[Rfam]
Nucleotides: 132
Base pairs, nucleotide, nucleotide: 004055005054006053007052017044018043019042020041021040022039023038024037025036026035084113086111087110089108090107091106092105
Number, partner (000 for none) and nucleotide at each position: 001000a002000a003000u004055c005054a006053g007052g008000a009000u010000u011000c012000a013000g014000a015000c016000u017044a018043c019042a020041a021040u022039a023038c024037a025036g026035c027000u028000g029000u030000u031000a032000a033000g034000u035026g036025c037024u038023g039022u040021g041020u042019u043018g044017u045000c046000a047000u048000u049000u050000c051000c052007c053006c054005u055004g056000c057000u058000c059000a060000a061000a062000a063000u064000a065000a066000a067000g068000u069000u070000g071000u072000u073000u074000c075000u076000u077000a078000c079000c080000u081000g082000u083000a084113c085000c086111u087110g088000u089108c090107u091106g092105c093000u094000a095000u096000a097000c098000c099000c100000u101000u102000a103000u104000a105092g106091c107090a108089g109000c110087c111086a112000a113084g114000g115000a116000u117000g118000c119000u120000u121000g122000g123000u124000c125000u126000c127000a128000u129000a130000c131000a132000u
Shown here is a 132-nucleotide RNA from Spermophilus dauricus, a member of the family "Small nucleolar RNA SNORA63". E3 belongs to the H/ACA class of snoRNAs and is involved in the processing of eukaryotic pre-rRNA and has regions of complementarity to 18S rRNA. E3 is encoded in introns in the gene for protein synthesis initiation factor 4AII. Rfam links the family to the GO terms RNA processing and nucleolus. By type it is an H/ACA-box small nucleolar RNA. The source organism's lineage runs through Eukaryota, Dipnotetrapodomorpha, Tetrapoda, Euarchontoglires and Spermophilus.